[Rfam]
Nucleotides: 206
Base pairs, nucleotide, nucleotide: 006201007200008199009198010197011196016116017115018114019113022110023109024108033100034099035098036097037096038095039094040093041092120151121150122149123148124147125146126145128143129142130141131140152178153177155175156174157173159171160170161169162168180191181190182189183188
Number, partner (000 for none) and nucleotide at each position: 001000a002000g003000u004000u005000a006201u007200g008199a009198u010197a011196g012000a013000g014000g015000c016116g017115c018114g019113g020000g021000c022110u023109u024108c025000a026000u027000c028000a029000g030000u031000a032000a033100u034099u035098c036097c037096g038095g039094c040093u041092g042000u043000g044000a045000g046000a047000u048000u049000c050000u051000g052000u053000a054000g055000a056000u057000u058000u059000g060000u061000g062000a063000a064000g065000c066000a067000u068000c069000a070000g071000a072000a073000u074000c075000c076000a077000g078000g079000c080000u081000g082000u083000c084000u085000g086000g087000c088000a089000g090000g091000c092041u093040g094039g095038c096037c097036g098035g099034g100033a101000a102000g103000a104000a105000a106000g107000g108024g109023a110022a111000u112000a113019c114018c115017g116016c117000c118000g119000a120151a121150g122149g123148g124147u125146u126145u127000g128143u129142u130141u131140u132000c133000g134000c135000c136000a137000u138000g139000a140131g141130a142129a143128g144000a145126g146125a147124g148123c149122u150121c151120u152178g153177g154000g155175c156174u157173g158000a159171c160170g161169c162168a163000g164000a165000a166000u167000a168162u169161g170160c171159g172000g173157c174156a175155g176000a177153c178152u179000g180191u181190c182189a183188c184000u185000g186000u187000u188183g189182u190181g191180g192000a193000g194000c195000g196011c197010u198009a199008u200007c201006g202000a203000a204000g205000g206000u
Lysine riboswitch aptamer: a 206-nucleotide RNA sequence from Ruminococcus sp. AF31-8BH. Rfam describes the family as follows. Riboswitches are metabolite binding domains within certain messenger RNAs that serve as precision sensors for their corresponding targets. The match comes from Rfam's covariance-model search (87 bits). Taxonomically the source falls in Ruminococcus (Bacteria, Bacillota, Clostridia, Eubacteriales).